[Rfam]
RNA sequence: GGUCAUGAGUGCCAGCGCGAAACCCCGGUUUGCUGGCCGGCAACCCUCCACUCGCGGUGGGGUGCCCCGGGUGAAGACCUGGCUCGUCGCCAACCGGUGUCGGGCAAGCGCGGGAA
Numbered sequence: 001g002g003u004c005a006u007g008a009g010u011g012c013c014a015g016c017g018c019g020a021a022a023c024c025c026c027g028g029u030u031u032g033c034u035g036g037c038c039g040g041c042a043a044c045c046c047u048c049c050a051c052u053c054g055c056g057g058u059g060g061g062g063u064g065c066c067c068c069g070g071g072u073g074a075a076g077a078c079c080u081g082g083c084u085c086g087u088c089g090c091c092a093a094c095c096g097g098u099g100u101c102g103g104g105c106a107a108g109c110g111c112g113g114g115a116a
Stems, first nucleotide, its partner, number of pairs: 001079004009038001011037006021030002039066003044062003048057002082105005088099004
RNA: SAM (S-adenosyl methionine) riboswitch aptamer